Rfam assigns this 48-nucleotide RNA sequence to the family "Xanthine riboswitch aptamer (NMT1 RNA)". Pairs were carried over by alignment from the consensus structure, which is taken from published work.

RNA sequence: GCGCAGAGUAGAAGCGUUCAGCCCUCGCGGCAGGAAAUUGCUCUUUCA
Number, nucleotide and partner (000 for none) at each position: 001g000002c000003g000004c000005a044006g043007a042008g041009u040010a039011g000012a000013a000014g000015c033016g000017u000018u035019c034020a000021g031022c030023c029024c000025u000026c000027g000028c000029g023030g022031c021032a000033g015034g019035a018036a000037a000038u000039u010040g009041c008042u007043c006044u005045u000046u000047c000048a000